[Rfam]
RNA: Brassica rapa small nucleolar RNA 775
Organism: Brassica napus
RNA sequence: UCGUUUAAUAUUUUCAUUAGAUUCUGAGCUUUGUUAUGUAUAAGGAAGAAAGAUAUGCCUCUUCUUUCAGCAGCAAGAUACAUUCUUGUUAGCUUUGUUCUGGAGGCAAAUAU
Dot-bracket structure: .......((((........................))))................(((((((......((((((((((.....))))))).))).......))))))).....